[Rfam]
RNA sequence: GAGAGAGGAAGGACGAUUGCCGGGUAUUUGACCUGAGGAAAGUCUCCCCAUCAUCCAGAUACACGAACACCUGUGAAGGGUGUCGGGUGAGAACCCGGGCUCUGGCACAGAAACGAUACCACACCAUAUCAAUGCUAUGAUACCGAAAGGUUGAGGUCGUAUGGAACGUGGAUGGAACGGCGAAACCUCGUGGAUGCAAGUUGGAGUAGGGAUCAAGCAGGUUUCUGGACUGCCCCGAAUUUAUUAACGCAUAGCCGAAUAUCGUCAAUGCAAGUGUCCACAAGGACCAUUCCCAAAUCAGCCCUGCUGAUGGGAAGCUUUGCAUCAACAGAAGGGAGCUUACUCUCCUCACUC
Numbered sequence: 001g002a003g004a005g006a007g008g009a010a011g012g013a014c015g016a017u018u019g020c021c022g023g024g025u026a027u028u029u030g031a032c033c034u035g036a037g038g039a040a041a042g043u044c045u046c047c048c049c050a051u052c053a054u055c056c057a058g059a060u061a062c063a064c065g066a067a068c069a070c071c072u073g074u075g076a077a078g079g080g081u082g083u084c085g086g087g088u089g090a091g092a093a094c095c096c097g098g099g100c101u102c103u104g105g106c107a108c109a110g111a112a113a114c115g116a117u118a119c120c121a122c123a124c125c126a127u128a129u130c131a132a133u134g135c136u137a138u139g140a141u142a143c144c145g146a147a148a149g150g151u152u153g154a155g156g157u158c159g160u161a162u163g164g165a166a167c168g169u170g171g172a173u174g175g176a177a178c179g180g181c182g183a184a185a186c187c188u189c190g191u192g193g194a195u196g197c198a199a200g201u202u203g204g205a206g207u208a209g210g211g212a213u214c215a216a217g218c219a220g221g222u223u224u225c226u227g228g229a230c231u232g233c234c235c236c237g238a239a240u241u242u243a244u245u246a247a248c249g250c251a252u253a254g255c256c257g258a259a260u261a262u263c264g265u266c267a268a269u270g271c272a273a274g275u276g277u278c279c280a281c282a283a284g285g286a287c288c289a290u291u292c293c294c295a296a297a298u299c300a301g302c303c304c305u306g307c308u309g310a311u312g313g314g315a316a317g318c319u320u321u322g323c324a325u326c327a328a329c330a331g332a333a334g335g336g337a338g339c340u341u342a343c344u345c346u347c348c349u350c351a352c353u354c
Stems, first nucleotide, its partner, number of pairs: 001354003005350005010344002012266006021035005040341003044338005049196004057223002062192005067083005084097005098187002103183001105181002119171003124164006142151002200248004207238001209236003
Source information: Archaeal RNase P: a 354-nucleotide sequence from Methanococcoides burtonii. Rfam's curators put it in the seed alignment. From the family's description: Ribonuclease P (RNase P) is a ubiquitous endoribonuclease, found in archaea, bacteria and eukarya as well as chloroplasts and mitochondria. Clan: RNaseP clan.